The family of this 191-nucleotide RNA sequence from Photobacterium aphoticum is "GcvB RNA".
Pairs were carried over by alignment from the consensus structure, which is taken from published work.
The gcvB gene encodes a small untranslated RNA involved in expression of the dipeptide and oligopeptide transport systems in Escherichia coli. Included several unknown homologues in alignment (Bateman A pers obs). It base-pairs with SorC. This interaction triggers the degradation of GcvB by RNase E, alleviating the GcvB-mediated mRNA repression of other amino acid-related transport and metabolic genes.

RNA sequence: UCGCAACGGUGAGGCAGGCCAAGUUUUCAGCCCUCUGGCAUUUGGUCUUAAACAUUGUUGCGAUGUUGUGUUUGCAUAUUGUCCGGGUUGUGCCGGACAGGUAGUCAAUCUACCACUUUUACUUCCUGUAUUUUUGACCUGUCUGUCAAAAUUUAUUCUUAGCACUGCGCCCCAACGCAGUGCUUUUUUUU
Numbered sequence: 001u002c003g004c005a006a007c008g009g010u011g012a013g014g015c016a017g018g019c020c021a022a023g024u025u026u027u028c029a030g031c032c033c034u035c036u037g038g039c040a041u042u043u044g045g046u047c048u049u050a051a052a053c054a055u056u057g058u059u060g061c062g063a064u065g066u067u068g069u070g071u072u073u074g075c076a077u078a079u080u081g082u083c084c085g086g087g088u089u090g091u092g093c094c095g096g097a098c099a100g101g102u103a104g105u106c107a108a109u110c111u112a113c114c115a116c117u118u119u120u121a122c123u124u125c126c127u128g129u130a131u132u133u134u135u136g137a138c139c140u141g142u143c144u145g146u147c148a149a150a151a152u153u154u155a156u157u158c159u160u161a162g163c164a165c166u167g168c169g170c171c172c173c174a175a176c177g178c179a180g181u182g183c184u185u186u187u188u189u190u191u
Base pairs, nucleotide, nucleotide: 010050011049016048017047018046019045020044021043023042025040027038028037029036030035080099081098082097083096084095085094086093100114101113102112103111104110161184162183163182164181165180166179167178168177
Dot-bracket structure: .........((....((((((.(.(.((((....)))).).))))))))).............................(((((((......)))))))(((((.....)))))..............................................((((((((........)))))))).......